[Rfam]
RNA sequence: CGAUCAGUUGUGAACCGAGCCUUCGGCACCUAAGUGCGUUAACCAAAAAAACGUGACGCAUAUGGCCCGCUGGCCGUGGCAAUAGUGCCACCGGGGUAGGUUGAGAAAGUCGGCCUGCCUUCCUCGAAUUUAGGAAAGGUAACACAUGCAAGAACUGC
Number, nucleotide and partner (000 for none) at each position: 001c000002g000003a000004u151005c000006a000007g000008u000009u000010g000011u144012g143013a000014a140015c139016c138017g000018a000019g074020c073021c072022u000023u000024c069025g068026g067027c000028a000029c065030c064031u000032a000033a000034g061035u060036g059037c058038g057039u056040u055041a054042a000043c000044c000045a000046a000047a000048a000049a000050a000051a000052c000053g000054u041055g040056a039057c038058g037059c036060a035061u034062a000063u000064g030065g029066c000067c026068c025069g024070c000071u000072g021073g020074c019075c000076g091077u090078g089079g088080c087081a000082a000083u000084a000085g000086u000087g080088c079089c078090a077091c076092c000093g000094g120095g119096g118097u117098a116099g115100g114101u113102u112103g111104a110105g000106a000107a000108a000109g000110u104111c103112g102113g101114c100115c099116u098117g097118c096119c095120u094121u134122c133123c000124u000125c000126g000127a000128a000129u000130u000131u000132a000133g122134g121135a000136a000137a000138g016139g015140u014141a000142a000143c012144a011145c000146a000147u000148g000149c000150a000151a004152g000153a000154a000155c000156u000157g000158c000

The record is a 158-nucleotide RNA sequence from Ferrimonas marina, which matches "Molybdenum/Tungsten riboswitch aptamer (Moco RNA motif)" in Rfam. For this family Rfam cites "in molybdenum cofactor and tungsten cofactor metabolism" (Regulski et al., Mol Microbiol, 2008).